Rfam assigns this 84-nucleotide RNA from Callithrix jacchus to the family "mir-548 microRNA precursor family".

RNA sequence: UAUUAGGUUGGUGCAAAAGUAGUUGUGGUUUUGGUCAUUAAAAGUAAUGACCGAAACCAAAAUUAUUUUUGCACCAACCUAAUA
Dot-bracket structure: ((((((((((((((((((((((((.(((((((((((((((....))))))))))))))).))))))))))))))))))))))))
Its family is annotated with RISC complex and miRNA-mediated post-transcriptional gene silencing in the Gene Ontology.
It scores 90 bits against the family's covariance model.